[Rfam]
RNA sequence: CUACGGACUUAAUUGGAUUGAGCCUUGGUAUGGAAACCUACCAAGUGAGAACUUUCAAAUUCAGAGAAACCCUGGAAUUAAAAAUGGGCGAUCCUGAGCCAAAUCCUGUUUUAUUAAAACAAACAAGGGUUUCAUAAACCGAGAAUAAAAAAGGAUAGGUGCAGAGACUCAAUGGAAGCUGUUCUAACAAAUGGAGUUGGCUGCAUUGUGUUAGUAAAGGAAUCCUUACAUCGAAACUUCCGAAAGGAUGAAGGAUAAACCUAUAUGCAUACGUAUAGUACUGCAAUACUAUCUCCAAAUGAUUAAUGACGGCUCGAAUCUGUAUUUUUUUAUAUUUAUAUGAAAAACGAAAGAAUUGUUGUGAAUCGAUUAAAAAUUGAAAAAAGAAUCGAAUAUUCAUUGAUCAAAUCAUUCACUCCAUCAUAGUCUGAUAGAUCUUUUUAAGAAUUGAUUAAUCGGACGAGAAUAAAGAUAGAGUCCCAUUAUACAUGUCAAUAUCGA
Dot-bracket structure: ....(..((((((...)))))).).........................[.[[[.[[...((((.(...(((.............)))...).))))((....((.....(((((............................)))))....))....))...(.(((((..]].]]].].((((.....................................................................................................................................................................................................................................................................................))))........))))))......(.((....)).)...
Group I catalytic intron: a 501-nucleotide RNA sequence from Prunus armeniaca. The match comes from Rfam's covariance-model search (122 bits). Group I catalytic introns are large self-splicing ribozymes. They catalyse their own excision from mRNA, tRNA and rRNA precursors in a wide range of organisms.